Nucleotides: 125
Base pairs, nucleotide, nucleotide: 014028015027016026017025076124077123078122079121086120087119090116091115092114093113094112
Number, partner (000 for none) and nucleotide at each position: 001000c002000g003000c004000g005000u006000u007000u008000u009000u010000c011000g012000c013000a014028g015027c016026g017025g018000a019000a020000c021000u022000c023000g024000a025017c026016c027015g028014c029000c030000c031000c032000a033000c034000g035000a036000c037000g038000a039000g040000a041000u042000g043000a044000u045000c046000c047000g048000g049000u050000u051000c052000g053000u054000u055000g056000a057000c058000a059000u060000g061000u062000u063000c064000c065000g066000g067000g068000a069000u070000c071000g072000u073000u074000u075000c076124g077123g078122g079121g080000u081000c082000g083000a084000g085000g086120c087119c088000a089000u090116c091115u092114g093113u094112c095000g096000c097000a098000c099000g100000a101000u102000c103000a104000g105000u106000g107000c108000g109000a110000c111000a112094g113093a114092c115091a116090g117000u118000g119087g120086g121079u122078u123077c124076c125000u
About this RNA: Rfam assigns this 125-nucleotide sequence from Enemella evansiae to the family "ALIL pseudoknot". It scores 53 bits against the family's covariance model. The family's RNA type in Rfam is cis-regulatory element.